Overview:
This 94-nucleotide RNA sequence from Alligator sinensis belongs to the Rfam family "mir-130 microRNA precursor family". The family's consensus secondary structure was predicted with PFOLD. It scores 44 bits against the family's covariance model. NCBI's taxonomy places the organism under Eukaryota, Eumetazoa, Bilateria, Euteleostomi, Alligator. Gene Ontology terms of the family: RISC complex and miRNA-mediated post-transcriptional gene silencing.
[Rfam]
RNA sequence: GGGUAGCCAUGGGGGCUUCUCCCAUGGCUCCUCUGGCUGUGCCUGCCUCUGCCCCAGUGGAGGGAGCCAUGUGAGAAGCCCUGAUGGCUGCCCU
Numbered sequence: 001g002g003g004u005a006g007c008c009a010u011g012g013g014g015g016c017u018u019c020u021c022c023c024a025u026g027g028c029u030c031c032u033c034u035g036g037c038u039g040u041g042c043c044u045g046c047c048u049c050u051g052c053c054c055c056a057g058u059g060g061a062g063g064g065a066g067c068c069a070u071g072u073g074a075g076a077a078g079c080c081c082u083g084a085u086g087g088c089u090g091c092c093c094u
Base pairs, nucleotide, nucleotide: 001094002093003092005089006088007087008086009085010084013081014080015079016078017077018076019075020074023071024070025069026068027067028066029065030064031063